RNA sequence: AACUUCCUUGUCUUGGGGAGCAUAGUGCGCAGUGAUCGUAAAGUGAGAGCACUUCUGCUGACACCCACAAGUUAAACUUGUUACACCCGCGCCCGGCUGCCGUAAGGGAGUCCGAGCGCAAUUUUUGACGGGCACUCUUACUUUACAGAGGCCUUU
Dot-bracket structure: ....(((((.....)))))(((.(((((.(......(.....)...).)))))..)))...............................(((..((((.((....)).)).))..)))......................................